Background: This 163-nucleotide RNA sequence from Miscanthus lutarioriparius belongs to the Rfam family "U1 spliceosomal RNA". On this family, see Pomeranz Krummel et al., Nature 2009: "Crystal structure of human spliceosomal U1 snRNP at 5.5 A resolution". U1 is a small nuclear RNA (snRNA) component of the spliceosome (involved in pre-mRNA splicing). Its 5' end forms complementary base pairs with the 5' splice junction, thus defining the 5' donor site of an intron.

[Rfam]
RNA sequence: AUACUUACCUGGACGGGGCCGACGGGCGAUCACGAAGGUCCGUGGCCUGGGUCAGUGGUCCUCAUUGCACUUUUGGAGGUUGCGCUGGCUUACCAUCUCCCCAAGCGGGAGAGCGGACGUCAUAAUUUGUGGUAGAGGGGGUACGCGUUCGCGCGGCCGCUGC
Numbered sequence: 001a002u003a004c005u006u007a008c009c010u011g012g013a014c015g016g017g018g019c020c021g022a023c024g025g026g027c028g029a030u031c032a033c034g035a036a037g038g039u040c041c042g043u044g045g046c047c048u049g050g051g052u053c054a055g056u057g058g059u060c061c062u063c064a065u066u067g068c069a070c071u072u073u074u075g076g077a078g079g080u081u082g083c084g085c086u087g088g089c090u091u092a093c094c095a096u097c098u099c100c101c102c103a104a105g106c107g108g109g110a111g112a113g114c115g116g117a118c119g120u121c122a123u124a125a126u127u128u129g130u131g132g133u134a135g136a137g138g139g140g141g142u143a144c145g146c147g148u149u150c151g152c153g154c155g156g157c158c159g160c161u162g163c
Stems, first nucleotide, its partner, number of pairs: 012121004016048006023042005049091003053088001055085003060079002062076002093116002096112003100108002137161002140158001144155004